[Rfam]
RNA sequence: GCUGUGUUUGGCAAUGGUAGAACUCACACUGGUGAGAUAAUGGAAUCCGGUGGUUCUAGACUUGCCAACUA
Dot-bracket structure: ....(..(((((((...((((((...((((((..............))))))))))))...)))))))..)

The record is a 71-nucleotide sequence from Monodelphis domestica, which matches "mir-182 microRNA precursor family" in Rfam. The organism belongs to Monodelphis, within Eukaryota. The literature on the family includes a 2009 paper in Mol Reprod Dev by Tesfaye et al., "Identification and expression profiling of microRNAs during bovine oocyte maturation using heterologous approach". Its family is annotated with miRNA-mediated post-transcriptional gene silencing and RISC complex in the Gene Ontology.